[Rfam]
This 172-nucleotide sequence from Triticum urartu belongs to the Rfam family "MIR2118 microRNA precursor family". Its family is annotated with miRNA-mediated post-transcriptional gene silencing and RISC complex in the Gene Ontology.

Nucleotides: 172
Base pairs, nucleotide, nucleotide: 009163010162011161012160013159015157016156017155021153022152023151026148028146029145030144031143032142033141035139037137038136039135040134041133042132043131044130045128046127048124049123050122052120054119055118056117057116058115059114
Number, partner (000 for none) and nucleotide at each position: 001000g002000c003000c004000g005000g006000g007000a008000c009163g010162a011161g012160g013159a014000a015157g016156a017155a018000a019000g020000a021153g022152a023151g024000a025000g026148c027000u028146c029145a030144a031143g032142a033141g034000c035139a036000c037137u038136g039135g040134g041133a042132a043131u044130g045128g046127a047000a048124c049123a050122u051000g052120g053000a054119g055118g056117a057116a058115a059114g060000a061000c062000c063000u064000u065000c066000u067000u068000u069000u070000u071000g072000u073000u074000u075000g076000u077000a078000c079000c080000u081000c082000u083000a084000g085000u086000g087000u088000g089000g090000g091000g092000g093000u094000g095000u096000a097000g098000a099000c100000a101000u102000u103000u104000c105000a106000g107000a108000u109000g110000g111000a112000u113000c114059c115058u116057u117056u118055c119054c120052u121000c122050a123049u124048g125000c126000c127046u128045c129000c130044c131043a132042u133041u134040c135039c136038u137037a138000c139035u140000a141033u142032u143031c144030u145029u146028g147000u148026g149000c150000a151023c152022u153021c154000c155017u156016u157015u158000c159013u160012c161011u162010u163009c164000c165000u166000u167000u168000u169000g170000g171000c172000u
The organism belongs to Triticum, within Eukaryota.